[Rfam]
The family of this 272-nucleotide sequence from Myotis lucifugus is "RNase MRP".
The organism belongs to Myotis, within Eukaryota.
Gene Ontology terms of the family: ribonuclease MRP activity, rRNA processing and ribonuclease MRP complex.
RNA sequence: GUUCGCGCUGAAGGCCUGUUGCCUAGGCUACGUACGGAGGACUCGGUUCCUCAUUUGCGCCUAGGGGAAAGUCCCCGGAUCUCUGGCAGAGAGUGCCGCGUGCGCAUGCACGUAGACUUCCUCCGCUUCUCCUUGUCAAUCCGCCAAGACGCGAGCCCGUUAGGCGGGGGAGCCGAGCGGUGUGCGGCGGGGUGUUGUCAUCCGUCAUCUCCUCUAGUUACGCAGGCGGUGCGUCCGCGCACUAACCACACGGGGCUCAUUCUCAGCGCGGC
Numbered sequence: 001g002u003u004c005g006c007g008c009u010g011a012a013g014g015c016c017u018g019u020u021g022c023c024u025a026g027g028c029u030a031c032g033u034a035c036g037g038a039g040g041a042c043u044c045g046g047u048u049c050c051u052c053a054u055u056u057g058c059g060c061c062u063a064g065g066g067g068a069a070a071g072u073c074c075c076c077g078g079a080u081c082u083c084u085g086g087c088a089g090a091g092a093g094u095g096c097c098g099c100g101u102g103c104g105c106a107u108g109c110a111c112g113u114a115g116a117c118u119u120c121c122u123c124c125g126c127u128u129c130u131c132c133u134u135g136u137c138a139a140u141c142c143g144c145c146a147a148g149a150c151g152c153g154a155g156c157c158c159g160u161u162a163g164g165c166g167g168g169g170g171a172g173c174c175g176a177g178c179g180g181u182g183u184g185c186g187g188c189g190g191g192g193u194g195u196u197g198u199c200a201u202c203c204g205u206c207a208u209c210u211c212c213u214c215u216a217g218u219u220a221c222g223c224a225g226g227c228g229g230u231g232c233g234u235c236c237g238c239g240c241a242c243u244a245a246c247c248a249c250a251c252g253g254g255g256c257u258c259a260u261u262c263u264c265a266g267c268g269c270g271g272c
Stems, first nucleotide, its partner, number of pairs: 003271009014227006022065007037052005070257002073255004085097004098113006115199003121192006131184001133182001141180004155165003229242005